Rfam assigns this 117-nucleotide sequence to the family "SAM-I/IV (S-adenosyl methionine) riboswitch aptamer". On this family, see Trausch et al., PNAS 2014: "Structural basis for diversity in the SAM clan of riboswitches".
RNA sequence: UGACAGCAUCAGGAGAGAUUUCUAAAAAGAAAUCCACCAACCGAGCUUAAAAGCUACGGUGGUUAGUUCCAUUAAACGGAAGAUGUGCCUCAAUAGAGGAAAAAUGGAACCGCCUGA
Numbered sequence: 001u002g003a004c005a006g007c008a009u010c011a012g013g014a015g016a017g018a019u020u021u022c023u024a025a026a027a028a029g030a031a032a033u034c035c036a037c038c039a040a041c042c043g044a045g046c047u048u049a050a051a052a053g054c055u056a057c058g059g060u061g062g063u064u065a066g067u068u069c070c071a072u073u074a075a076a077c078g079g080a081a082g083a084u085g086u087g088c089c090u091c092a093a094u095a096g097a098g099g100a101a102a103a104a105u106g107g108a109a110c111c112g113c114c115u116g117a
Base pairs, nucleotide, nucleotide: 006086007085008084009083010082015035017034018033019032020031021030022029023028036063037062038061041059042058043057044055045054046053048112088099089098090097091096